This 97-nucleotide RNA sequence from Secundilactobacillus mixtipabuli belongs to the Rfam family "TPP riboswitch aptamer (THI element)".
Taxonomically the source falls in Secundilactobacillus (Bacteria, Bacillati, Bacillota, Lactobacillaceae).
It scores 67 bits against the family's covariance model.
Pairs were carried over by alignment from the consensus structure, which is taken from published work.
For this family Rfam cites "Structural basis of thiamine pyrophosphate analogues binding to the eukaryotic riboswitch" (Thore et al., J Am Chem Soc, 2008).

Nucleotides: 097
Stems, first nucleotide, its partner, number of pairs: 006085005011049004016043001017025003032042004055078003059072004
Number, partner (000 for none) and nucleotide at each position: 001000u002000a003000u004000a005000u006085u007084a008083a009082c010081u011049a012048g013047g014046g015000g016043c017025g018024c019023a020000a021000a022000u023019u024018g025017c026000u027000g028000a029000g030000a031000c032042g033041g034040u035039c036000a037000u038000g039035g040034a041033c042032c043016g044000a045000a046014c047013c048012c049011u050000u051000c052000g053000a054000a055078c056077c057076u058000g059072u060071g061070a062069g063000u064000u065000a066000a067000c068000c069062c070061u071060c072059g073000c074000g075000a076057a077056g078055g079000a080000a081010a082009g083008u084007u085006a086000a087000c088000g089000u090000g091000a092000u093000u094000u095000u096000u097000u